[Rfam]
RNA sequence: AGGCGGUGUGGAGCAUUCUGUUACUCAAAAGGUAACGGAACUCCUGCAAGGCCACAUCGUUGAAUUGACCGGUAAAUAAUACAAUCUAUUAAACAUUAUACUUACAAGCAAAAGUGCUUUGCCUUCAUGAGUGAUGUGUUCUAAUACUCACCGUUACAAUAACGAAGUGAGUGCCGUGGCUGUUCGCAAGACGAAACGGUUCAGUAACUAGUAGCGCAAGUUAGAUGUUAGCUGCAUCUUACCUAAGUGAAACGUGCCGAGAUACUUAUGAAGUAAUAAUAUGAACAUGAACGAUACGUUAGGGAUAGCGUGGAAACGUUGCGAAAUCAUAAUGCAAUUAAAGGCGUUCGAGCUGUGGCUAUAUUCUCAAGCC
Numbered sequence: 001a002g003g004c005g006g007u008g009u010g011g012a013g014c015a016u017u018c019u020g021u022u023a024c025u026c027a028a029a030a031g032g033u034a035a036c037g038g039a040a041c042u043c044c045u046g047c048a049a050g051g052c053c054a055c056a057u058c059g060u061u062g063a064a065u066u067g068a069c070c071g072g073u074a075a076a077u078a079a080u081a082c083a084a085u086c087u088a089u090u091a092a093a094c095a096u097u098a099u100a101c102u103u104a105c106a107a108g109c110a111a112a113a114g115u116g117c118u119u120u121g122c123c124u125u126c127a128u129g130a131g132u133g134a135u136g137u138g139u140u141c142u143a144a145u146a147c148u149c150a151c152c153g154u155u156a157c158a159a160u161a162a163c164g165a166a167g168u169g170a171g172u173g174c175c176g177u178g179g180c181u182g183u184u185c186g187c188a189a190g191a192c193g194a195a196a197c198g199g200u201u202c203a204g205u206a207a208c209u210a211g212u213a214g215c216g217c218a219a220g221u222u223a224g225a226u227g228u229u230a231g232c233u234g235c236a237u238c239u240u241a242c243c244u245a246a247g248u249g250a251a252a253c254g255u256g257c258c259g260a261g262a263u264a265c266u267u268a269u270g271a272a273g274u275a276a277u278a279a280u281a282u283g284a285a286c287a288u289g290a291a292c293g294a295u296a297c298g299u300u301a302g303g304g305a306u307a308g309c310g311u312g313g314a315a316a317c318g319u320u321g322c323g324a325a326a327u328c329a330u331a332a333u334g335c336a337a338u339u340a341a342a343g344g345c346g347u348u349c350g351a352g353c354u355g356u357g358g359c360u361a362u363a364u365u366c367u368c369a370a371g372c373c
Stems, first nucleotide, its partner, number of pairs: 002061008010044004017039009046122007108187002123273010137287005146172006152164003173200005181193004204257003209245003212241001225240001227238001228236001289349005295312007313366003318338006358372003

Rfam assigns this 373-nucleotide RNA sequence from Weissella paramesenteroides to the family "Giant, ornate, lake- and Lactobacillales-derived (GOLLD) RNA". NCBI's taxonomy places the organism under Bacteria, Bacillati, Bacillota, Bacilli, Weissella paramesenteroides. A reference for the family is Weinberg et al. (2009), "Exceptional structured noncoding RNAs revealed by bacterial metagenome analysis", Nature. By type it is a non-coding RNA gene. A search with the family's covariance model found it, with a score of 173 bits.